Source information
Shown here is a 95-nucleotide RNA from Agromyces intestinalis, a member of the family "mraW RNA". Lineage of the source: Bacteria > Bacillati > Actinomycetes > Microbacteriaceae > Agromyces. A search with the family's covariance model found it, with a score of 57 bits.
RNA sequence: CUGAGUCCCCUGGGCCCGACUCCCAGCCGUCGACCUGAGGCACUUCCCCGCUUCAGGACGAACGGAUGGGGAUCGGGCCCCGGGGCCCAGAAAGA
Number, nucleotide and partner (000 for none) at each position: 001c000002u000003g000004a000005g000006u000007c000008c000009c000010c082011u000012g080013g079014g078015c077016c076017c000018g074019a073020c000021u071022c070023c069024c068025a067026g000027c065028c064029g063030u062031c060032g059033a000034c057035c056036u055037g054038a053039g052040g051041c050042a000043c000044u000045u000046c000047c000048c000049c000050g041051c040052u039053u038054c037055a036056g035057g034058a000059c032060g031061a000062a030063c029064g028065g027066a000067u025068g024069g023070g022071g021072a000073u019074c018075g000076g016077g015078c014079c013080c012081c000082g010083g000084g000085g000086c000087c000088c000089a000090g000091a000092a000093a000094g000095a000